[Rfam]
RNA: RT-15 RNA
Organism: Pseudomonas sp. HLS-6
RNA sequence: CCGCGCCCGCUACCUGAGAGUUACGGCUUUCUGGUCUGUGCGAAUUGAACCUGGUCGUGCCGCUGACCUGUGGUCACCGCCAUGCGCACUCUGGAUACCGCCGGCCUAAAGCGUCGGGCAGGUCCAGCGCAGUUUCCCUGCUGAAGAUUCGGCAGGGCGACGUAGAUAGCACGACUGGUCG
Numbered sequence: 001c002c003g004c005g006c007c008c009g010c011u012a013c014c015u016g017a018g019a020g021u022u023a024c025g026g027c028u029u030u031c032u033g034g035u036c037u038g039u040g041c042g043a044a045u046u047g048a049a050c051c052u053g054g055u056c057g058u059g060c061c062g063c064u065g066a067c068c069u070g071u072g073g074u075c076a077c078c079g080c081c082a083u084g085c086g087c088a089c090u091c092u093g094g095a096u097a098c099c100g101c102c103g104g105c106c107u108a109a110a111g112c113g114u115c116g117g118g119c120a121g122g123u124c125c126a127g128c129g130c131a132g133u134u135u136c137c138c139u140g141c142u143g144a145a146g147a148u149u150c151g152g153c154a155g156g157g158c159g160a161c162g163u164a165g166a167u168a169g170c171a172c173g174a175c176u177g178g179u180c181g
Stems, first nucleotide, its partner, number of pairs: 004042003012035003016031006055174006061079002064076005083131005092126004098122002101117005133160002136157009